[Rfam]
RNA sequence: AGCUCCACCGGGUCCACCGCCCGGGUGACGGUCAGGUAGUCCCGGAUCGCCGUGCCGUGCCGCCCCUC
Dot-bracket structure: ....(..(...((.((((.....)))))).....((((.(..((...))..)))))..)..)......
Shown here is a 68-nucleotide RNA sequence from Micromonospora rosaria, a member of the family "ASdes TB sRNA".
The literature on the family includes a 2009 paper in Mol Microbiol by Arnvig and Young, "Identification of small RNAs in Mycobacterium tuberculosis".
The organism belongs to Micromonospora, within Bacteria.
A search with the family's covariance model found it, with a score of 58 bits.
Pairs were carried over by alignment from the consensus structure, which is taken from published work.